A member of the RNA family "SAM riboswitch aptamer (S box leader)" from Halpernia frigidisoli, 106 nucleotides long. Lineage of the source: Bacteria > Bacteroidota > Flavobacteriia > Weeksellaceae > Halpernia. From the family's description: The SAM riboswitch is found upstream of a number of genes which code for proteins involved in methionine or cysteine biosynthesis in Gram-positive bacteria. The SAM riboswitch acts at the level of transcription termination control. The predicted structure consists of a complex stem-loop region followed by a single stem loop terminator region.
RNA sequence: AUGUUAUCCAGAAAGGCGGAGGGAUUAGACCCUAUGAAACCUUGGCAACCUAUCUUCCGGGAAAAGGUGCUACAUUCUAUCUGCAGUUUCGCAGUACAGAUAACAA
Numbered sequence: 001a002u003g004u005u006a007u008c009c010a011g012a013a014a015g016g017c018g019g020a021g022g023g024a025u026u027a028g029a030c031c032c033u034a035u036g037a038a039a040c041c042u043u044g045g046c047a048a049c050c051u052a053u054c055u056u057c058c059g060g061g062a063a064a065a066g067g068u069g070c071u072a073c074a075u076u077c078u079a080u081c082u083g084c085a086g087u088u089u090c091g092c093a094g095u096a097c098a099g100a101u102a103a104c105a106a
Base pairs, nucleotide, nucleotide: 002105003104004103005102006101007100008099013043014042015041016040021032022031023030026079027078028077029076044071045070046069047068049067050066051063053061054060075098081094082093083092084091